[Rfam]
RNA sequence: GGUAAAGAGGAUGAGAAUGGGGUACGGACUUUAAAUUCCUGAAAAUGCCAUCCAUUUCCUGAUUUGCC
Dot-bracket structure: ((((((........................................................))))))

The record is a 68-nucleotide sequence from Leptobrachium leishanense, which matches "Small nucleolar RNA SNORD123" in Rfam. For this family Rfam cites "snoSeeker: an advanced computational package for screening of guide and orphan snoRNA genes in the human genome" (Yang et al., Nucleic Acids Res, 2006). Rfam links the family to the GO terms RNA processing and nucleolus. The base pairs follow the family's consensus structure, which was predicted with WAR.